[Rfam]
Description:
The record is a 144-nucleotide RNA sequence from Peptoniphilus sp. ING2-D1G, which matches "glmS glucosamine-6-phosphate activated ribozyme aptamer" in Rfam. The family's RNA type in Rfam is riboswitch. The family's consensus secondary structure is taken from published work. About the family: This entry contains a glucosamine-6-phosphate activated ribozyme that is found in the mRNA for GlmS. GlmS is an enzyme that uses fructose-6-phosphate and glutamine to generate glucosamine-6-phosphate. The ribozyme catalyses self cleavage of the glmS mRNA that is thought to regulate GlmS activity.
RNA sequence: AAAACAGUUUUAGCGCCAGGUCCCAUGAGGAUGACGAGGUAUGGAGUUAUCGAAAUAUUCGGCGGAUGCUCCAUAGGUAUCACAGCCUGAGUUCUUUUAAAAAACUAAAAGCAAUUUUAUAACAAAUAAAGUCCAGUGAAUCUC
Numbered sequence: 001a002a003a004a005c006a007g008u009u010u011u012a013g014c015g016c017c018a019g020g021u022c023c024c025a026u027g028a029g030g031a032u033g034a035c036g037a038g039g040u041a042u043g044g045a046g047u048u049a050u051c052g053a054a055a056u057a058u059u060c061g062g063c064g065g066a067u068g069c070u071c072c073a074u075a076g077g078u079a080u081c082a083c084a085g086c087c088u089g090a091g092u093u094c095u096u097u098u099a100a101a102a103a104a105c106u107a108a109a110a111g112c113a114a115u116u117u118u119a120u121a122a123c124a125a126a127u128a129a130a131g132u133c134c135a136g137u138g139a140a141u142c143u144c
Stems, first nucleotide, its partner, number of pairs: 020032004041074005050062004075088004091134001094131004106119005